[Rfam]
RNA sequence: GCCCAGAUGAACUCUCGGUGGUCCGGAGUGCAGGCUUCAAACCUGUAGCCGAUUAGCGUCGGAGUGGUUCAAUUCCACCCUCUGGGC
Dot-bracket structure: (((((((.(..(((.(((....))))))((((((.......)))))).(((((....))))).((((.......))))).)))))))
Numbered sequence: 001g002c003c004c005a006g007a008u009g010a011a012c013u014c015u016c017g018g019u020g021g022u023c024c025g026g027a028g029u030g031c032a033g034g035c036u037u038c039a040a041a042c043c044u045g046u047a048g049c050c051g052a053u054u055a056g057c058g059u060c061g062g063a064g065u066g067g068u069u070c071a072a073u074u075c076c077a078c079c080c081u082c083u084g085g086g087c
Stems, first nucleotide, its partner, number of pairs: 001087007009079001012028003016025003029047006049062005064078004
The record is an 87-nucleotide sequence from Oppiella nova, which matches "Selenocysteine transfer RNA" in Rfam.
Rfam links the family to the GO term triplet codon-amino acid adaptor activity.
The literature on the family includes a 2000 paper in FEBS Lett by Mizutani and Goto, "Eukaryotic selenocysteine tRNA has the 9/4 secondary structure".
It scores 70 bits against the family's covariance model.